Shown here is a 62-nucleotide RNA, a member of the family "pemK RNA". By type it is a cis-regulatory element. The family's consensus secondary structure is taken from published work.

[Rfam]
RNA sequence: AUAAUGAUACUUCUGCCUUCGGGCAGUUCGGUGAGAACCACGGAGAGGUGAGAACCCUAUGG
Number, nucleotide and partner (000 for none) at each position: 001a000002u000003a000004a000005u000006g000007a000008u000009a000010c000011u000012u059013c026014u025015g024016c023017c000018u000019u000020c000021g000022g000023g016024c015025a014026g013027u045028u044029c043030g000031g041032u040033g039034a000035g000036a000037a000038c000039c033040a032041c031042g000043g029044a028045g027046a058047g057048g056049u000050g000051a000052g000053a000054a000055c000056c048057c047058u046059a012060u000061g000062g000